The record is an 85-nucleotide sequence from Coptis chinensis, which matches "mir-160 microRNA precursor family" in Rfam. Rfam links the family to the GO terms RISC complex and miRNA-mediated post-transcriptional gene silencing. The literature on the family includes a 2002 paper in Cell by Rhoades et al., "Prediction of plant microRNA targets". Pairs were carried over by alignment from the consensus structure, which was predicted with PFOLD. It scores 77 bits against the family's covariance model.
RNA sequence: AUGUGCCUGGCUCCCUGUAUGCCAUUUGCAACGUUCAUCAAUUCUUGAUGAUCUUCGUGGAUGGCGUGCGAGGAGCCAAGCAUAU
Numbered sequence: 001a002u003g004u005g006c007c008u009g010g011c012u013c014c015c016u017g018u019a020u021g022c023c024a025u026u027u028g029c030a031a032c033g034u035u036c037a038u039c040a041a042u043u044c045u046u047g048a049u050g051a052u053c054u055u056c057g058u059g060g061a062u063g064g065c066g067u068g069c070g071a072g073g074a075g076c077c078a079a080g081c082a083u084a085u
Stems, first nucleotide, its partner, number of pairs: 001085006008078007016070009027059003